[Rfam]
RNA sequence: UUACGUGCAGGUGGAGAUGCACGAUGUCGAUUGCGUGAGCGAUAAGUCGUUCGAGACGUGCCCUAUGCCGUCCGCAACCGAUGUUCGAUUCCUCCUCCUGAUCCUGUGCUUGCGUAGUGCAACAGCAAGCAGGAGACGUCGUCGCGAUCCACCACGUGUUGGUUGGAUUGGCUGGACACUGAAGUGACGCGUUGUCACUUCUGACGCACACCUGACACGACCGCGAGAGUCGUGUGUGCCGAUCGUUGUUUCCGGGAGCUCGGAAACCGU
Dot-bracket structure: ............((((.....((((((((...(((..(.(.....)).......((((..........)))))))...))))).)))....))))(((((.............................)))))..(((((((((.(.(.((((.....)))).)...).))..)))...(((((((.......))))))).))))........(((((((.......))))..)))..........(((((((......)))))))...

The record is a 270-nucleotide RNA sequence from Pseudomonas matsuisoli, which matches "rne-II RNA" in Rfam. Lineage of the source: Bacteria > Pseudomonadati > Gammaproteobacteria > Pseudomonadales > Pseudomonas. It scores 159 bits against the family's covariance model.